[Rfam]
RNA sequence: UGCAAGUAUUUUACGAUUAAGAAGCAACUGCCUCUUGUACAAAUUGUGUACUAAAUU
Number, nucleotide and partner (000 for none) at each position: 001u000002g000003c000004a000005a000006g000007u000008a000009u000010u000011u000012u000013a000014c000015g000016a000017u000018u037019a036020a035021g034022a033023a000024g031025c030026a000027a000028c000029u000030g025031c024032c000033u022034c021035u020036u019037g018038u000039a000040c000041a000042a000043a000044u000045u000046g000047u000048g000049u000050a000051c000052u000053a000054a000055a000056u000057u000
This 57-nucleotide sequence from Elaeagnus angustifolia belongs to the Rfam family "Plastid-rps18 3UTR RNA". The literature on the family includes a 2023 paper in Plant Commun by Richter et al., "Retrograde signaling in plants: A critical review focusing on the GUN pathway and beyond". The sequence is in the family's curated seed alignment. By type it is a cis-regulatory element.